Shown here is an 86-nucleotide RNA sequence from Novacetimonas maltaceti, a member of the family "ZMP/ZTP riboswitch aptamer (pfl RNA motif)". Taxonomically the source falls in Novacetimonas (Bacteria, Pseudomonadati, Pseudomonadota, Acetobacteraceae).
RNA sequence: CGUACUCCGCAUGACUGGCGACAUGGGGUGGAAAGACCACCGGGAAGUGCGGAUGGGUUCGUGCGCCGUUCGCCUGGGCAUCCUCC
Number, nucleotide and partner (000 for none) at each position: 001c000002g000003u056004a000005c000006u053007c052008c051009g050010c049011a048012u047013g000014a000015c044016u043017g074018g073019c072020g071021a070022c000023a000024u000025g000026g000027g000028g040029u039030g038031g037032a000033a000034a000035g000036a000037c031038c030039a029040c028041c000042g000043g016044g015045a000046a000047g012048u011049g010050c009051g008052g007053a006054u000055g000056g003057g000058u000059u000060c000061g000062u000063g081064c000065g079066c078067c077068g000069u000070u021071c020072g019073c018074c017075u000076g000077g067078g066079c065080a000081u063082c000083c000084u000085c000086c000